[Rfam]
RNA sequence: GUGAAGUUAAUCACAAACAAACAUACCCCUUUGUUUGACCGUGAAAAAUUUCUCCCAUCCCCUUUGUUCGUAUUUAAAUAGGAAAAGGCCGUGCAAUCAGAAUGGUUUGCACGGCCUUUUC
Numbered sequence: 001g002u003g004a005a006g007u008u009a010a011u012c013a014c015a016a017a018c019a020a021a022c023a024u025a026c027c028c029c030u031u032u033g034u035u036u037g038a039c040c041g042u043g044a045a046a047a048a049u050u051u052c053u054c055c056c057a058u059c060c061c062c063u064u065u066g067u068u069c070g071u072a073u074u075u076a077a078a079u080a081g082g083a084a085a086a087g088g089c090c091g092u093g094c095a096a097u098c099a100g101a102a103u104g105g106u107u108u109g110c111a112c113g114g115c116c117u118u119u120u121c
Base pairs, nucleotide, nucleotide: 003052004051005050006049007048008047011044012043013042014041018037019036020035021034022033023032068081085118086117087116088115089114090113091112092111093110094109095108
A member of the RNA family "RNA Staph. aureus E (RoxS)" from Bacillus yapensis, 121 nucleotides long. It is annotated as a small RNA. Lineage of the source: Bacteria > Bacillota > Caryophanales > Bacillaceae > Bacillus. It scores 108 bits against the family's covariance model. It was shown to be regulated by the presence of nitric oxide (NO). In Bacillus subtilis it controls expression of genes with functions related to oxidative stress and oxidation-reduction reactions and it was renamed RoxS (for related to oxidative stress).